The record is a 71-nucleotide RNA sequence from Bacteroides luti, which matches "Bacteroidetes FopS (family of paralogous sRNAs)" in Rfam.
For this family Rfam cites "The global RNA-binding protein RbpB is a regulator of polysaccharide utilization in Bacteroides thetaiotaomicron" (Ruttiger et al., Nat Commun, 2025).
Rfam describes the family as follows. The RNA-binding protein RbpB and BTncRNA_FopS sRNA are involved in the post-transcription regulation of polysaccharide utilisation loci (PUL). FopS sRNAs function as post-transcriptional repressors by binding to the vicinity of the start codon of the first mRNA of target PUL polycistrons, typically corresponding to the cognate SusC homolog, impeding translation of the respective glycan transporter.
The family's RNA type in Rfam is small RNA.

[Rfam]
RNA sequence: AUGUUUUUCAUGGUAUUAGAUUUAAGGUUAAUAAAGAUUGGGUUGUCGUGAUGACAGCCUUUUUUUUUAUA
Dot-bracket structure: ........................................(((((((.....)))))))............
Numbered sequence: 001a002u003g004u005u006u007u008u009c010a011u012g013g014u015a016u017u018a019g020a021u022u023u024a025a026g027g028u029u030a031a032u033a034a035a036g037a038u039u040g041g042g043u044u045g046u047c048g049u050g051a052u053g054a055c056a057g058c059c060u061u062u063u064u065u066u067u068u069a070u071a
Stems, first nucleotide, its partner, number of pairs: 041059007

Description: The family's consensus secondary structure is taken from published work. A search with the family's covariance model found it, with a score of 76 bits.